[Rfam]
Description: A member of the RNA family "DUF805b RNA", 33 nucleotides long.
RNA sequence: AAAGCGGGAGCCGUAAAGCUUAAAGAGUAGGCA
Numbered sequence: 001a002a003a004g005c006g007g008g009a010g011c012c013g014u015a016a017a018g019c020u021u022a023a024a025g026a027g028u029a030g031g032c033a
Stems, first nucleotide, its partner, number of pairs: 002021004010032003
The sequence is in the family's curated seed alignment.